[Rfam]
Glycine riboswitch aptamer: a 98-nucleotide RNA from Mycobacterium intracellulare. From the family's description: This family represents the bacterial glycine riboswitch. Glycine riboswitches usually consist of two metabolite-binding aptamers domains with similar structures in tandem. The aptamers cooperatively bind glycine to regulate the expression of downstream genes. In Bacillus subtilis, this riboswitch is found upstream of the gcvT operon which controls glycine degradation. Taxonomically the source falls in Mycobacterium intracellulare (Bacteria, Bacillati, Mycobacteriaceae, Mycobacterium).
RNA sequence: CGUAUUCGAGCGGGAGAGUUCCGUGACGGCCAGUCACGGACGCCGAAGGAGCAACACCUCUCCGUCAACCUCUCAGGCACCCGGACCGCGCGAAACAA
Numbered sequence: 001c002g003u004a005u006u007c008g009a010g011c012g013g014g015a016g017a018g019u020u021c022c023g024u025g026a027c028g029g030c031c032a033g034u035c036a037c038g039g040a041c042g043c044c045g046a047a048g049g050a051g052c053a054a055c056a057c058c059u060c061u062c063c064g065u066c067a068a069c070c071u072c073u074c075a076g077g078c079a080c081c082c083g084g085a086c087c088g089c090g091c092g093a094a095a096c097a098a
Stems, first nucleotide, its partner, number of pairs: 006093003010089004020040008042078003045074002049072003056065002